[Rfam]
RNA sequence: GGGUACUUGUCGGAGUGCCCAGCUGUUUACAGCGGGCUGAGACCGUGAAAACGGGAUCCGUUGAACCUGAUCAGGCUAAUACCUGCGAAGGGAAACAAGGGGAAAUACAGC
Numbered sequence: 001g002g003g004u005a006c007u008u009g010u011c012g013g014a015g016u017g018c019c020c021a022g023c024u025g026u027u028u029a030c031a032g033c034g035g036g037c038u039g040a041g042a043c044c045g046u047g048a049a050a051a052c053g054g055g056a057u058c059c060g061u062u063g064a065a066c067c068u069g070a071u072c073a074g075g076c077u078a079a080u081a082c083c084u085g086c087g088a089a090g091g092g093a094a095a096c097a098a099g100g101g102g103a104a105a106u107a108c109a110g111c
Stems, first nucleotide, its partner, number of pairs: 006099005011060004016054001017037004044053003066091003072085004
Dot-bracket structure: .....(((((((((.(((((.............))))......(((....))))..)))).....(((...((((......))))...)))...)))))............